[Rfam]
RNA sequence: CUGCCUCUUGCUUCAGCAGUGUUUGGACGGAUGG
Number, nucleotide and partner (000 for none) at each position: 001c034002u033003g032004c000005c000006u031007c030008u029009u000010g028011c000012u027013u026014c025015a024016g023017c021018a000019g000020u000021g017022u000023u016024u015025g014026g013027a012028c010029g008030g007031a006032u003033g002034g001

Iron response element I: a 34-nucleotide RNA sequence from Myotis myotis. The match comes from Rfam's covariance-model search (36 bits). Taxonomically the source falls in Myotis (Eukaryota, Opisthokonta, Sarcopterygii, Mammalia). For this family Rfam cites "Ferritin L and H subunits are differentially regulated on a post-transcriptional level" (Sammarco et al., J Biol Chem, 2008).